[Rfam]
RNA sequence: GGAACUCGCCUUUCAGGCAUCCUCUCCCAAAGACUUUCAAGGGCUGGUCCUCACGGACCGGCCUUUUUUUUGUCCUGC
Numbered sequence: 001g002g003a004a005c006u007c008g009c010c011u012u013u014c015a016g017g018c019a020u021c022c023u024c025u026c027c028c029a030a031a032g033a034c035u036u037u038c039a040a041g042g043g044c045u046g047g048u049c050c051u052c053a054c055g056g057a058c059c060g061g062c063c064u065u066u067u068u069u070u071u072g073u074c075c076u077g078c
Stems, first nucleotide, its partner, number of pairs: 008018004042063009